Annotation:
Shown here is a 215-nucleotide RNA sequence, a member of the family "HNH endonuclease-associated RNA and ORF (HEARO) RNA". Rfam classes the family as a non-coding RNA gene.
RNA sequence: GUCAAUAGCCCACCGCUAAAGCGGUGAGCUUGCCCCUGCGGUAAGCUUUGAUUGACCAGACUGAGUUCCCAUGAGGAACUACGUUAUCCCGACUAUGAUACCCUCGGAUGCUUCCUUAGUCCGUUGCUCUAUCGCAUCGCAUUAAACAGUCCUGAGAGGUAGGGACAGUGUGCAUGCAUGACAAACCGGGAUAACAUUGUCGAAGGGAGACGGUC
Numbered sequence: 001g002u003c004a005a006u007a008g009c010c011c012a013c014c015g016c017u018a019a020a021g022c023g024g025u026g027a028g029c030u031u032g033c034c035c036c037u038g039c040g041g042u043a044a045g046c047u048u049u050g051a052u053u054g055a056c057c058a059g060a061c062u063g064a065g066u067u068c069c070c071a072u073g074a075g076g077a078a079c080u081a082c083g084u085u086a087u088c089c090c091g092a093c094u095a096u097g098a099u100a101c102c103c104u105c106g107g108a109u110g111c112u113u114c115c116u117u118a119g120u121c122c123g124u125u126g127c128u129c130u131a132u133c134g135c136a137u138c139g140c141a142u143u144a145a146a147c148a149g150u151c152c153u154g155a156g157a158g159g160u161a162g163g164g165a166c167a168g169u170g171u172g173c174a175u176g177c178a179u180g181a182c183a184a185a186c187c188g189g190g191a192u193a194a195c196a197u198u199g200u201c202g203a204a205g206g207g208a209g210a211c212g213g214u215c
Base pairs, nucleotide, nucleotide: 001056002055003054004053005052006051008049010028012025013024015022016021029045030044031043032042033041034040059201060200061199063197064080065079066078067077068076083195084194085193086192087191088190089189090188091187098132099131102126105123106122107121108120109119110211112209113208114207115206116205117204134177135176136175137174139173140172141171142170146169147168149166150165151164152163153162155160
For this family Rfam cites "Exceptional structured noncoding RNAs revealed by bacterial metagenome analysis" (Weinberg et al., Nature, 2009).